[Rfam]
RNA: U1 spliceosomal RNA
RNA sequence: AUACUUACCUGGCAGAGGAGAUAUUAUGAUCACAAAGGUGGUUUUCCCAGGGCAAAGCUUAUCCAUUGUACUCCAGAUGUGCUGACCCCUGCAAUUUCCCCGAAUGUGGAAAACUCGACUGCAUAAUUUGUGGUAGUGGGGGACUUUAUAGUUGCUUUCCUCUG
Dot-bracket structure: ...........((((.(((((.(((((..........)))))))))).((((...(((.((((............)))).)))...)))).(.((((.((.......)))).).).).))))...............((((((...((....))...)))))).